[Rfam]
RNA sequence: UGGCCAGGGGGCCGGGAUGCUCGGGAUGAUUUCGGUCCGGAGCGACCCAGGAGUACAGGGGGUACUCCCGCCAUGGCGGGCCAGGCCACGGGAGCC
Number, nucleotide and partner (000 for none) at each position: 001u088002g087003g086004c085005c084006a000007g000008g000009g000010g082011g081012c080013c079014g048015g047016g046017a000018u044019g000020c042021u041022c040023g000024g038025g037026a036027u035028g000029a000030u000031u000032u000033c000034g000035g027036u026037c025038c024039g000040g022041a021042g020043c000044g018045a000046c016047c015048c014049a000050g068051g067052a066053g065054u064055a063056c062057a000058g000059g000060g000061g000062g056063u055064a054065c053066u052067c051068c050069c000070g000071c000072c000073a000074u000075g000076g000077c000078g000079g013080g012081c011082c010083a000084g005085g004086c003087c002088a001089c000090g000091g000092g000093a000094g000095c000096c000
Source information
A member of the RNA family "ivy-DE RNA" from Pseudomonas jinjuensis, 96 nucleotides long. NCBI's taxonomy places the organism under Bacteria, Pseudomonadota, Pseudomonadales, Pseudomonadaceae, Pseudomonas.